[Rfam]
The record is a 72-nucleotide sequence from Neocallimastix californiae, which matches "tRNA" in Rfam.
RNA sequence: AGCAGCGUAGCGCAGUGGAAGCGUGGUGGGCUCAUAACCCACAGGUUGUAUGAUCGAAACAUACCGCUGCUA
Numbered sequence: 001a002g003c004a005g006c007g008u009a010g011c012g013c014a015g016u017g018g019a020a021g022c023g024u025g026g027u028g029g030g031c032u033c034a035u036a037a038c039c040c041a042c043a044g045g046u047u048g049u050a051u052g053a054u055c056g057a058a059a060c061a062u063a064c065c066g067c068u069g070c071u072a
Stems, first nucleotide, its partner, number of pairs: 001071007010024004026042005048064005